This 77-nucleotide RNA sequence belongs to the Rfam family "CyVA-1 RNA". The family's consensus secondary structure is taken from published work. Cyanobacteria, Acidobacteria (1 example), Verrucomicrobia (1 example). It is annotated as a small RNA.

RNA sequence: GCACCGGAUGGGAGUUAUACCGCAGUGACCCAGAACCGGACAUCGAAGGAGAGCGAUGUCAGAUGUCCGGACGGUGC
Numbered sequence: 001g002c003a004c005c006g007g008a009u010g011g012g013a014g015u016u017a018u019a020c021c022g023c024a025g026u027g028a029c030c031c032a033g034a035a036c037c038g039g040a041c042a043u044c045g046a047a048g049g050a051g052a053g054c055g056a057u058g059u060c061a062g063a064u065g066u067c068c069g070g071a072c073g074g075u076g077c
Stems, first nucleotide, its partner, number of pairs: 001077006009032004037069008